A member of the RNA family "Flavobacterium-1 RNA", 121 nucleotides long. Rfam's curators put it in the seed alignment. The family's consensus secondary structure is taken from published work. By type it is a small RNA.

RNA sequence: CGAGAGACGGCAUCCAAAUCAGCCUCUGGCUUUUCCCUGUAUGUUAGCAGUGACCGCAAGGUAGCGACUAAGAACUCGGACCAGUAGCGCCAGAGUUACCUGGCCAGUAUGGCGCUCUGGU
Numbered sequence: 001c002g003a004g005a006g007a008c009g010g011c012a013u014c015c016a017a018a019u020c021a022g023c024c025u026c027u028g029g030c031u032u033u034u035c036c037c038u039g040u041a042u043g044u045u046a047g048c049a050g051u052g053a054c055c056g057c058a059a060g061g062u063a064g065c066g067a068c069u070a071a072g073a074a075c076u077c078g079g080a081c082c083a084g085u086a087g088c089g090c091c092a093g094a095g096u097u098a099c100c101u102g103g104c105c106a107g108u109a110u111g112g113c114g115c116u117c118u119g120g121u
Stems, first nucleotide, its partner, number of pairs: 001078004009068001010044004015039002021031004047065002054061002081120004086116007100107002